[Rfam]
RNA sequence: CGGUAAUGUCUCCUCACCGUUAUCGAUGGAGGCACUCGGUUCUGCUGUGGGUGAGAGAAAUCUCUCACCUUAGACGCCUUUAAUAAAAGGUCGUCGGUGGUAGGGUGUGAGGUGGGGUUAAAUGCCCU
Numbered sequence: 001c002g003g004u005a006a007u008g009u010c011u012c013c014u015c016a017c018c019g020u021u022a023u024c025g026a027u028g029g030a031g032g033c034a035c036u037c038g039g040u041u042c043u044g045c046u047g048u049g050g051g052u053g054a055g056a057g058a059a060a061u062c063u064c065u066c067a068c069c070u071u072a073g074a075c076g077c078c079u080u081u082a083a084u085a086a087a088a089g090g091u092c093g094u095c096g097g098u099g100g101u102a103g104g105g106u107g108u109g110a111g112g113u114g115g116g117g118u119u120a121a122a123u124g125c126c127c128u
Base pairs, nucleotide, nucleotide: 001019002018003017004016007034008033009032010031011030012029013028035111036110037109038108039106040105041104042103043102044101045100046099049070050069051068052067053066054065055064056063073095074094075093076092114128115127116126117125118124
About this RNA
This 128-nucleotide RNA from Mangrovibacillus cuniculi belongs to the Rfam family "epsC RNA". The source organism's lineage runs through Bacteria, Bacillati, Caryophanales, Bacillaceae and Mangrovibacillus.